[Rfam]
RNA sequence: UGUUGUCCAUAGCCCUUUUUCUGUUGUACUACUAGGAAUCAGAUGAGCAGUGCAAUAUUAAAAGGGCAUUGGCUGACA
Numbered sequence: 001u002g003u004u005g006u007c008c009a010u011a012g013c014c015c016u017u018u019u020u021c022u023g024u025u026g027u028a029c030u031a032c033u034a035g036g037a038a039u040c041a042g043a044u045g046a047g048c049a050g051u052g053c054a055a056u057a058u059u060a061a062a063a064g065g066g067c068a069u070u071g072g073c074u075g076a077c078a
Base pairs, nucleotide, nucleotide: 001078002077003076005073007072008071009070012067013066014065015064016063017062018061019060022057023056024055025054026053027052028051029050030049
This 78-nucleotide sequence from Megalops atlanticus belongs to the Rfam family "mir-130 microRNA precursor family". Lineage of the source: Eukaryota > Opisthokonta > Neopterygii > Megalopidae > Megalops. The match comes from Rfam's covariance-model search (49 bits). The literature on the family includes a 2002 paper in Curr Biol by Lagos-Quintana et al., "Identification of tissue-specific microRNAs from mouse". The family has 9 seed sequences and 2,580 matches in Rfam 15.1.